[Rfam]
RNA: Plastid-psbA-1 3UTR RNA
Organism: Ranunculus glacialis
RNA sequence: GUUGAAGUUCCAUCCAUAAAUGGCUAAGUCUUAGUUCUUAGACUAUGCUAGUCUAAGUGUAUAUGAGUCGUUGAAGUUGCAGGAGUAAUACCCAAUUUCUUGUUUGGACAAGAGGCUGGGUAUUACUCCUGCGUU
Numbered sequence: 001g002u003u004g005a006a007g008u009u010c011c012a013u014c015c016a017u018a019a020a021u022g023g024c025u026a027a028g029u030c031u032u033a034g035u036u037c038u039u040a041g042a043c044u045a046u047g048c049u050a051g052u053c054u055a056a057g058u059g060u061a062u063a064u065g066a067g068u069c070g071u072u073g074a075a076g077u078u079g080c081a082g083g084a085g086u087a088a089u090a091c092c093c094a095a096u097u098u099c100u101u102g103u104u105u106g107g108a109c110a111a112g113a114g115g116c117u118g119g120g121u122a123u124u125a126c127u128c129c130u131g132c133g134u135u
Stems, first nucleotide, its partner, number of pairs: 010023004079132013093118002097114005